[Rfam]
RNA sequence: CCUUUCCAGGUCUGUGGUUGCGGAAAAUGAUACGGUUUUCCUAGUCCAUGGCAGACGAGGUCAAAAGGAUCCACGUAAGCUUGGCUUUCCAAGCGAGCAUGGCUCGUCCUAGAAGUAAGUCGCACCGUCUGAUAUCUCUGAGGCACACGGCUUCGCAGGCGAGAGAGCUUUCAGUGAGGAUACACCGUGUCCAAGCAACCGCUCCGGUGCGCGAGUGUGGGGUCAAAUACCAGGUCAGCUGGAAAGG
Numbered sequence: 001c002c003u004u005u006c007c008a009g010g011u012c013u014g015u016g017g018u019u020g021c022g023g024a025a026a027a028u029g030a031u032a033c034g035g036u037u038u039u040c041c042u043a044g045u046c047c048a049u050g051g052c053a054g055a056c057g058a059g060g061u062c063a064a065a066a067g068g069a070u071c072c073a074c075g076u077a078a079g080c081u082u083g084g085c086u087u088u089c090c091a092a093g094c095g096a097g098c099a100u101g102g103c104u105c106g107u108c109c110u111a112g113a114a115g116u117a118a119g120u121c122g123c124a125c126c127g128u129c130u131g132a133u134a135u136c137u138c139u140g141a142g143g144c145a146c147a148c149g150g151c152u153u154c155g156c157a158g159g160c161g162a163g164a165g166a167g168c169u170u171u172c173a174g175u176g177a178g179g180a181u182a183c184a185c186c187g188u189g190u191c192c193a194a195g196c197a198a199c200c201g202c203u204c205c206g207g208u209g210c211g212c213g214a215g216u217g218u219g220g221g222g223u224c225a226a227a228u229a230c231c232a233g234g235u236c237a238g239c240u241g242g243a244a245a246g247g
Stems, first nucleotide, its partner, number of pairs: 001247009012238003015232004048218003051061001054108006070102002079094006100225001121211005126161005165204004174196002181189003